[Rfam]
RNA sequence: GUGCAUUCUGGGAACAUUCAACGCUGUCGGUGAGUUUGGAUGCAUAAUAAACCAUCGACCGUUGGCUGUGCCCUGAGAUUAC
Numbered sequence: 001g002u003g004c005a006u007u008c009u010g011g012g013a014a015c016a017u018u019c020a021a022c023g024c025u026g027u028c029g030g031u032g033a034g035u036u037u038g039g040a041u042g043c044a045u046a047a048u049a050a051a052c053c054a055u056c057g058a059c060c061g062u063u064g065g066c067u068g069u070g071c072c073c074u075g076a077g078a079u080u081a082c
Stems, first nucleotide, its partner, number of pairs: 001082003006077003015068002018065006026059007034052004

A member of the RNA family "mir-181 microRNA precursor family" from Danio rerio, 82 nucleotides long.
A search with the family's covariance model found it, with a score of 60 bits.
Taxonomically the source falls in Danio (Eukaryota, Teleostomi, Ostariophysi, Otophysi).
The literature on the family includes a 2001 paper in Cell by Ambros, "microRNAs: tiny regulators with great potential".
The family has 157 seed sequences and 3,490 matches in Rfam 15.1.